[Rfam]
RNA sequence: AUCCUGUUUCAACUUUUAGUAGGAAAGCGGUAGCAAUACCAUAUAAAAAUAAUGUUGUAUUGGUAGUUUAUUUUUUAUUUUUUGAGAAUGGGGGGUGUUUAGUCCGUAGGCAUUUAAAAAAAUGAAUCAGGCAUAUUUAAAGCGACGGCGCUUUAAAUAUCUUUAGAAGAUUCACCUACCCUGGUUCGAAAAC
Numbered sequence: 001a002u003c004c005u006g007u008u009u010c011a012a013c014u015u016u017u018a019g020u021a022g023g024a025a026a027g028c029g030g031u032a033g034c035a036a037u038a039c040c041a042u043a044u045a046a047a048a049a050u051a052a053u054g055u056u057g058u059a060u061u062g063g064u065a066g067u068u069u070a071u072u073u074u075u076u077a078u079u080u081u082u083u084g085a086g087a088a089u090g091g092g093g094g095g096u097g098u099u100u101a102g103u104c105c106g107u108a109g110g111c112a113u114u115u116a117a118a119a120a121a122a123u124g125a126a127u128c129a130g131g132c133a134u135a136u137u138u139a140a141a142g143c144g145a146c147g148g149c150g151c152u153u154u155a156a157a158u159a160u161c162u163u164u165a166g167a168a169g170a171u172u173c174a175c176c177u178a179c180c181c182u183g184g185u186u187c188g189a190a191a192a193c
Base pairs, nucleotide, nucleotide: 037065038064039063040062041061071192072191073190074189075188089183090182091181092180093179094176095175096174102132103131104130106128111124112123113122114121115120134159135158136157137156138155139154
A member of the RNA family "R2 RNA element" from Drosophila rhopaloa, 193 nucleotides long. This family represents the 3' UTR region of the R2 retrotransposable element. This family is known to interact with the R2-encoded reverse transcriptase in a reaction known as target primed reverse transcription (TPRT). Pairs were carried over by alignment from the consensus structure, which is taken from published work. Its family is annotated with regulation of reverse transcription in the Gene Ontology. Lineage of the source: Eukaryota > Insecta > Neoptera > Drosophilinae > Sophophora. Rfam 15.1 lists 3,698 matches to the family in 74 species. It scores 47 bits against the family's covariance model.